[Rfam]
RNA sequence: UUGCAUGUGGAAAUAUGUGUUCCUUAUUCCUCUAGGAACAGGAAUAGAUCCAUAACAUGCUACAUUAAAAAAAAUACAAUAGGAGUUUUCAGGGCUACCAACCUUACAGUAGAGGUUGAGUAGUAGUAUAUUUCUCCUACAUAA
Numbered sequence: 001u002u003g004c005a006u007g008u009g010g011a012a013a014u015a016u017g018u019g020u021u022c023c024u025u026a027u028u029c030c031u032c033u034a035g036g037a038a039c040a041g042g043a044a045u046a047g048a049u050c051c052a053u054a055a056c057a058u059g060c061u062a063c064a065u066u067a068a069a070a071a072a073a074a075u076a077c078a079a080u081a082g083g084a085g086u087u088u089u090c091a092g093g094g095c096u097a098c099c100a101a102c103c104u105u106a107c108a109g110u111a112g113a114g115g116u117u118g119a120g121u122a123g124u125a126g127u128a129u130a131u132u133u134c135u136c137c138u139a140c141a142u143a144a
Base pairs, nucleotide, nucleotide: 003060004059005058006057007056008055016042018040019039020038021037022036023035082137083136084135085134094124095123098120099118100117101116102115103114104113105112
Rfam assigns this 144-nucleotide RNA from Chrysochloris asiatica to the family "Small nucleolar RNA U109". On this family, see Gu et al., Nucleic Acids Res 2005: "A novel experimental approach for systematic identification of box H/ACA snoRNAs from eukaryotes". The match comes from Rfam's covariance-model search (139 bits). By type it is an H/ACA-box small nucleolar RNA. Its family is annotated with nucleolus and RNA processing in the Gene Ontology. Rfam 15.1 lists 1,405 matches to the family in 622 species. The base pairs follow the family's consensus structure, which was predicted with WAR.